[Rfam]
Shown here is a 109-nucleotide RNA from Desulforamulus reducens, a member of the family "SAM riboswitch aptamer (S box leader)".
It is one of the family's seed sequences.
Lineage of the source: Bacteria > Bacillota > Eubacteriales > Peptococcaceae > Desulforamulus reducens.
RNA sequence: CUCUUAUCCUGAGAGGUGGAGGGACUGGCCCUAUGAAACCCAGCAACCAUUCGGUUAAGCCCGGACUGGUGCUAAUUCCUGCAGAAGAUAUUCUUCUGGCAGAUAAGAG
Numbered sequence: 001c002u003c004u005u006a007u008c009c010u011g012a013g014a015g016g017u018g019g020a021g022g023g024a025c026u027g028g029c030c031c032u033a034u035g036a037a038a039c040c041c042a043g044c045a046a047c048c049a050u051u052c053g054g055u056u057a058a059g060c061c062c063g064g065a066c067u068g069g070u071g072c073u074a075a076u077u078c079c080u081g082c083a084g085a086a087g088a089u090a091u092u093c094u095u096c097u098g099g100c101a102g103a104u105a106a107g108a109g
Stems, first nucleotide, its partner, number of pairs: 001109008013041001015040003021031003025081001027079002042073004047069002050065004077101001082098006
Notes
Gene Ontology term of the family: regulation of gene expression.